[Rfam]
RNA sequence: AUAAUGAUACUUCCGUAGCCGAAAGCGCGGAUGCCGGAGUACCCGGCGGUUGGUGAGAGGCCAAUGA
Numbered sequence: 001a002u003a004a005u006g007a008u009a010c011u012u013c014c015g016u017a018g019c020c021g022a023a024a025g026c027g028c029g030g031a032u033g034c035c036g037g038a039g040u041a042c043c044c045g046g047c048g049g050u051u052g053g054u055g056a057g058a059g060g061c062c063a064a065u066g067a
Base pairs, nucleotide, nucleotide: 012064013030014029015028016027032048033047035045036044037043051063052062053061